The family of this 122-nucleotide RNA sequence from Pipistrellus kuhlii is "Small nucleolar RNA SNORA31". Rfam's curators write: ACA31 (SNORA31) belongs to the H/ACA class of snoRNAs which are thought to guide the sites of modification of uridines to pseudouridines. ACA31 is predicted to guide the pseudouridylation of U3713 in 28S rRNA and U218 in 18S rRNA. This family includes the mouse homologue snoMBI-161. Gene Ontology terms of the family: nucleolus and RNA processing. The source organism's lineage runs through Eukaryota, Deuterostomia, Gnathostomata, Laurasiatheria and Pipistrellus. It scores 92 bits against the family's covariance model. Rfam classes the family as an H/ACA-box small nucleolar RNA. The family's consensus secondary structure was predicted with RNAalifold. The literature on the family includes a 2001 paper in EMBO J by Huttenhofer et al., "RNomics: an experimental approach that identifies 201 candidates for novel, small, non-messenger RNAs in mouse".
RNA sequence: UUGUUACCGGAACCUUGAACAACCUGUUGUUCUUAUGGUUUGCACUGGGAUGCGAAAGAAAAGUAUCCCUGCGUUUUCUGUCUGUCUUUGUGGCGGCCCAGAUUGAAUAAGGGACUACAUUU
Numbered sequence: 001u002u003g004u005u006a007c008c009g010g011a012a013c014c015u016u017g018a019a020c021a022a023c024c025u026g027u028u029g030u031u032c033u034u035a036u037g038g039u040u041u042g043c044a045c046u047g048g049g050a051u052g053c054g055a056a057a058g059a060a061a062a063g064u065a066u067c068c069c070u071g072c073g074u075u076u077u078c079u080g081u082c083u084g085u086c087u088u089u090g091u092g093g094c095g096g097c098c099c100a101g102a103u104u105g106a107a108u109a110a111g112g113g114a115c116u117a118c119a120u121u122u
Stems, first nucleotide, its partner, number of pairs: 001049002005044001008042002011040004017032006066114005074105001077102004082096005